A member of the RNA family "mir-965 microRNA precursor family" from Vanessa tameamea, 73 nucleotides long. Pairs were carried over by alignment from the consensus structure, which was predicted with RNAalifold. Gene Ontology terms of the family: miRNA-mediated post-transcriptional gene silencing and RISC complex. It scores 72 bits against the family's covariance model.
[Rfam]
Nucleotides: 073
Stems, first nucleotide, its partner, number of pairs: 003071005010065003014061002018057005026050002029048004
Number, partner (000 for none) and nucleotide at each position: 001000u002000a003071a004070c005069u006068g007067a008000a009000c010065g011064g012063g013000a014061g015060a016000a017000g018057u019056u020055g021054u022053a023000a024000c025000g026050c027049u028000c029048u030047a031046u032045g033000u034000u035000a036000u037000c038000u039000u040000a041000g042000c043000a044000c045032c046031a047030u048029a049027a050026g051000c052000g053022u054021a055020u056019a057018g058000c059000u060015u061014u062000u063012c064011c065010c066000c067007u068006u069005g070004g071003u072000u073000a